[Rfam]
The family of this 164-nucleotide RNA sequence from Kingdonia uniflora is "U4 spliceosomal RNA". Clan: U4 clan. For this family Rfam cites "The uRNA database" (Zwieb, Nucleic Acids Res, 1997). It scores 52 bits against the family's covariance model. Rfam classes the family as a spliceosomal small nuclear RNA.

RNA sequence: AUCUUUGUACUUGGCAAUGACGCAGUCAGUGAGGCGAGGCUCUAUCCGAGGCGCGUUGGUUGCUGGUUGAAAACUAAACUCACCAAUAAAACCUGUUGUUUGGUUUUCAUGACAACCCUUCUUCUCUUUCAAAACUUAUAAAAUAGAUUUGACUUAAGUUUAAG
Numbered sequence: 001a002u003c004u005u006u007g008u009a010c011u012u013g014g015c016a017a018u019g020a021c022g023c024a025g026u027c028a029g030u031g032a033g034g035c036g037a038g039g040c041u042c043u044a045u046c047c048g049a050g051g052c053g054c055g056u057u058g059g060u061u062g063c064u065g066g067u068u069g070a071a072a073a074c075u076a077a078a079c080u081c082a083c084c085a086a087u088a089a090a091a092c093c094u095g096u097u098g099u100u101u102g103g104u105u106u107u108c109a110u111g112a113c114a115a116c117c118c119u120u121c122u123u124c125u126c127u128u129u130c131a132a133a134a135c136u137u138a139u140a141a142a143a144u145a146g147a148u149u150u151g152a153c154u155u156a157a158g159u160u161u162a163a164g
Stems, first nucleotide, its partner, number of pairs: 019057005025052003033047002094145003097141001100138001102136005153164004